RNA sequence: UGGUCAUUACCAAGGCUUUUAGAACUCAGUUUCCCAUUUGCUGUGGACAUGACCAUAAAAAAAUUUCCCACUAGGGUUUAUAUAAGCUACCUUAUUAGCAAUCAACCUAUUGGAAACACUA
Numbered sequence: 001u002g003g004u005c006a007u008u009a010c011c012a013a014g015g016c017u018u019u020u021a022g023a024a025c026u027c028a029g030u031u032u033c034c035c036a037u038u039u040g041c042u043g044u045g046g047a048c049a050u051g052a053c054c055a056u057a058a059a060a061a062a063a064u065u066u067c068c069c070a071c072u073a074g075g076g077u078u079u080a081u082a083u084a085a086g087c088u089a090c091c092u093u094a095u096u097a098g099c100a101a102u103c104a105a106c107c108u109a110u111u112g113g114a115a116a117c118a119c120u121a
Stems, first nucleotide, its partner, number of pairs: 003053005010046003027040003068113003074107002077104001086099002
This 121-nucleotide sequence from Castor canadensis belongs to the Rfam family "Small nucleolar RNA SNORA32". Pairs were carried over by alignment from the consensus structure, which was predicted with RNAfold. Lineage of the source: Eukaryota > Bilateria > Chordata > Craniata > Castor. ACA32 is a member of the H/ACA class of snoRNA that guide the sites of modification of uridines to pseudouridines. Gene Ontology terms of the family: RNA processing and nucleolus.